[Rfam]
Source information
The record is a 62-nucleotide RNA sequence from Biomphalaria glabrata, which matches "Small nucleolar RNA SNORD58" in Rfam. The family's RNA type in Rfam is C/D-box small nucleolar RNA. Taxonomically the source falls in Biomphalaria (Eukaryota, Opisthokonta, Gastropoda, Euthyneura). Gene Ontology terms of the family: nucleolus and RNA processing. A search with the family's covariance model found it, with a score of 47 bits. Rfam describes the family as follows. snoRNA U58 is found in introns 1, 3 and 6 of the ribosomal protein RPL17 gene in humans. A reference for the family is Galardi et al. (2002), "Purified box C/D snoRNPs are able to reproduce site-specific 2'-O-methylation of target RNA in vitro", Mol Cell Biol. The family is grouped with related families in Rfam's "SNORD58 clan".
RNA sequence: UUGCUAUGAUGACACUUAGGACACCAUUGAAAUGAAUAUGUAACUACAUUCAACUGAGCAAU
Numbered sequence: 001u002u003g004c005u006a007u008g009a010u011g012a013c014a015c016u017u018a019g020g021a022c023a024c025c026a027u028u029g030a031a032a033u034g035a036a037u038a039u040g041u042a043a044c045u046a047c048a049u050u051c052a053a054c055u056g057a058g059c060a061a062u
Base pairs, nucleotide, nucleotide: 001061002060003059004058